The family of this 100-nucleotide RNA sequence from Ferrimonas marina is "Glycine riboswitch aptamer".

[Rfam]
RNA sequence: GGACGAGCCUCUGGAGAGAUCCAUUGAUUUGGACGCCGAAGGCGCAAGCCGGCCCCCGUGGUCGUGUGAAACGCUCAGGCAAAAGGACAGAGGUGGGAAA
Numbered sequence: 001g002g003a004c005g006a007g008c009c010u011c012u013g014g015a016g017a018g019a020u021c022c023a024u025u026g027a028u029u030u031g032g033a034c035g036c037c038g039a040a041g042g043c044g045c046a047a048g049c050c051g052g053c054c055c056c057c058g059u060g061g062u063c064g065u066g067u068g069a070a071a072c073g074c075u076c077a078g079g080c081a082a083a084a085g086g087a088c089a090g091a092g093g094u095g096g097g098a099a100a
Stems, first nucleotide, its partner, number of pairs: 007094007020033004035080003038076002042074003048067002